[Rfam]
RNA sequence: AUAAUAUAUUGGCAAAUCUAGAGAAAUUUAGAGACGCAAAGCUAAAGGGGCUAAGGUUAUAUAACUAUGCUAGCCAGUUGCCAAA
Numbered sequence: 001a002u003a004a005u006a007u008a009u010u011g012g013c014a015a016a017u018c019u020a021g022a023g024a025a026a027u028u029u030a031g032a033g034a035c036g037c038a039a040a041g042c043u044a045a046a047g048g049g050g051c052u053a054a055g056g057u058u059a060u061a062u063a064a065c066u067a068u069g070c071u072a073g074c075c076a077g078u079u080g081c082c083a084a085a
Base pairs, nucleotide, nucleotide: 012037013036017032018031019030020029021028022027040079041078042077043076047075048074049071050070051069056065057064058063
Shown here is an 85-nucleotide RNA from Clostridium perfringens, a member of the family "c-di-GMP-I riboswitch aptamer". Taxonomically the source falls in Clostridium perfringens E (Bacteria, Bacillota, Clostridia, Eubacteriales). It is one of the family's seed sequences.